[Rfam]
RNA sequence: UAUUUUUUGGUAGAUCUAUCCCGUAUAUAUUCAGGAAUAUGGCCUGAACGUUUCUACCCGGCUACCGUAAAUGGCCGGACUACGGUUUAUAGGUCGCCGGGA
Numbered sequence: 001u002a003u004u005u006u007u008u009g010g011u012a013g014a015u016c017u018a019u020c021c022c023g024u025a026u027a028u029a030u031u032c033a034g035g036a037a038u039a040u041g042g043c044c045u046g047a048a049c050g051u052u053u054c055u056a057c058c059c060g061g062c063u064a065c066c067g068u069a070a071a072u073g074g075c076c077g078g079a080c081u082a083c084g085g086u087u088u089a090u091a092g093g094u095c096g097c098c099g100g101g102a
Stems, first nucleotide, its partner, number of pairs: 018088001021085005030048006058078007